[Rfam]
Shown here is a 357-nucleotide part of an RNA from Candidatus Methanobinarius endosymbioticus, a member of the family "Archaeal large subunit ribosomal RNA". The literature on the family includes a 2002 paper in BMC Bioinformatics by Cannone et al., "The comparative RNA web (CRW) site: an online database of comparative sequence and structure information for ribosomal, intron, and other RNAs".
RNA sequence: UAAGGUAAAUUAGCUAAGGGAAAUCGGCAAAAUGGCCCCGUAACUUUGGAAGAAGGGGUGCCAGCUAUGAAAAUAGCUGGUCUCAGUGACCAGGGGGGCCCGACUGUUUAAUAAAAACAUAGCUCCUAGCUAGCCCGAAAGGGUGUGUACUGGGGGCGACACCUGCCCAGUGCUGGUAUGUGAAGCUGGGGUACAACCUAGUGAAGCACCAGUAAACGGCGGGGGUAACUAUAACCCUCUUAAGGUAGCGAAAUGCCUUGCCGGAUAAGUACCGGCCUGCAUGAAUGGUAGAACGAGGUCCCCACUGUCCCUAGCUAGUACUUAGUGAACCUGCUAUUCUGGUGCACAAGCCAGAGA
Dot-bracket structure: ((((....((((((((.(((..............(((((....(....).....)))))(((((((((....)))))))))(...).......(((((((((..(((.........)))..(((((((((..((((....))))..)..))))))))...(((.(((..(((((((..(((....(((((......)))))....))))))))..)))))((((((.......))))))(...)...............(((((.......)))))..........)))....)).)))))))....))).)))))))).)))).............(((((........)))))..

NCBI's taxonomy places the organism under Archaea, Methanobacteria, Methanobacteriales, Methanobacteriaceae, Candidatus Methanobinarius. A search with the family's covariance model found it, with a score of 2888 bits.